[Rfam]
RNA: Bacterial small subunit ribosomal RNA, nucleotides 861 to 1444
RNA sequence: UGACGGGGGCCCGCACAAGCGGUGGAGCAUGUGGUUUAAUUCGAAGCAACGCGCAGAACCUUACCAGCCUUUGACAUGGCAGGCCUGGACCAGAGAUGGUUCGUUCUCUUCGGAGACCUGCACACAGGUGCUGCAUGGCUGUCGUCAGCUCGUGUCGUGAGAUGUUGGGUUAAGUCCCGCAACGAGCGCAACCCACGUCCUUAGUUGCCAUCAUUCAGUUGGGCACUCUAGGGAGACUGCCGGUGAUAAGCCGCGAGGAAGGUGUGGAUGACGUCAAGUCCUCAUGGCCCUUACGGGCUGGGCUACACACGUGCUACAAUGGCGGUGACAGAGGGAUGCCAGACCGCGAGGUCGCGCAAAUCUCAAAAAUCCGUCUCAGUUCGGAUCGCACUCUGCAACUCGAGUGCGUGAAGUUGGAAUCGCUAGUAAUCGCGGAUCAGCACGCCGCGGUGAAUACGUUCCCGGGCCUUGUACACACCGCCCGUCACACCAUGGGAGUUGGUUUUACCCGAAGGCGUUUCGCCAACCGCAAGGGGGCAGGCGACCACGGUAGGGUCAGCGACUGGGGUGAAGUCGUAACAAGG
Numbered sequence: 001u002g003a004c005g006g007g008g009g010c011c012c013g014c015a016c017a018a019g020c021g022g023u024g025g026a027g028c029a030u031g032u033g034g035u036u037u038a039a040u041u042c043g044a045a046g047c048a049a050c051g052c053g054c055a056g057a058a059c060c061u062u063a064c065c066a067g068c069c070u071u072u073g074a075c076a077u078g079g080c081a082g083g084c085c086u087g088g089a090c091c092a093g094a095g096a097u098g099g100u101u102c103g104u105u106c107u108c109u110u111c112g113g114a115g116a117c118c119u120g121c122a123c124a125c126a127g128g129u130g131c132u133g134c135a136u137g138g139c140u141g142u143c144g145u146c147a148g149c150u151c152g153u154g155u156c157g158u159g160a161g162a163u164g165u166u167g168g169g170u171u172a173a174g175u176c177c178c179g180c181a182a183c184g185a186g187c188g189c190a191a192c193c194c195a196c197g198u199c200c201u202u203a204g205u206u207g208c209c210a211u212c213a214u215u216c217a218g219u220u221g222g223g224c225a226c227u228c229u230a231g232g233g234a235g236a237c238u239g240c241c242g243g244u245g246a247u248a249a250g251c252c253g254c255g256a257g258g259a260a261g262g263u264g265u266g267g268a269u270g271a272c273g274u275c276a277a278g279u280c281c282u283c284a285u286g287g288c289c290c291u292u293a294c295g296g297g298c299u300g301g302g303c304u305a306c307a308c309a310c311g312u313g314c315u316a317c318a319a320u321g322g323c324g325g326u327g328a329c330a331g332a333g334g335g336a337u338g339c340c341a342g343a344c345c346g347c348g349a350g351g352u353c354g355c356g357c358a359a360a361u362c363u364c365a366a367a368a369a370u371c372c373g374u375c376u377c378a379g380u381u382c383g384g385a386u387c388g389c390a391c392u393c394u395g396c397a398a399c400u401c402g403a404g405u406g407c408g409u410g411a412a413g414u415u416g417g418a419a420u421c422g423c424u425a426g427u428a429a430u431c432g433c434g435g436a437u438c439a440g441c442a443c444g445c446c447g448c449g450g451u452g453a454a455u456a457c458g459u460u461c462c463c464g465g466g467c468c469u470u471g472u473a474c475a476c477a478c479c480g481c482c483c484g485u486c487a488c489a490c491c492a493u494g495g496g497a498g499u500u501g502g503u504u505u506u507a508c509c510c511g512a513a514g515g516c517g518u519u520u521c522g523c524c525a526a527c528c529g530c531a532a533g534g535g536g537g538c539a540g541g542c543g544a545c546c547a548c549g550g551u552a553g554g555g556u557c558a559g560c561g562a563c564u565g566g567g568g569u570g571a572a573g574u575c576g577u578a579a580c581a582a583g584g
Stems, first nucleotide, its partner, number of pairs: 001475002003472003007469007015459002019423005024317001026315008034306002040055001042053002064301007077124002079121005086103007105116004127290002130288004136284002138279003141275001143273002148187006154163003166179004193267004198234007208223002212221002237258002240255001241253004321375005333364003338357002343352003382413001387408007429451007478583001480580001483576002488570004493565003498560012514545001516543004522538003527534002
Dot-bracket structure: (((((.(((((((.((..((((((.((((((((((....(.((........)).)........(((((((......(((((((..(((((((....))))))).((((....))))))))).))..((.((((..((((((.((...(((((((((....)))..((((......))))..)))))).....((((.(((((((...((..((......))))....)))))))..((.(((((.....)))).).)).....))))....)).).)))...))))))))....)))))))...)).)))))))).)...(((((.......(((..((...(((....)))...))....)))......)))))......(....(((((((........)))))))....).....))))).....(((((((.........)))))))......))...)))))))))).))..(.(..((...((((.(((..((((((((((((....(.((((..(((..((....)).))).)))).)...))))))))))))..))).))))....))...)..).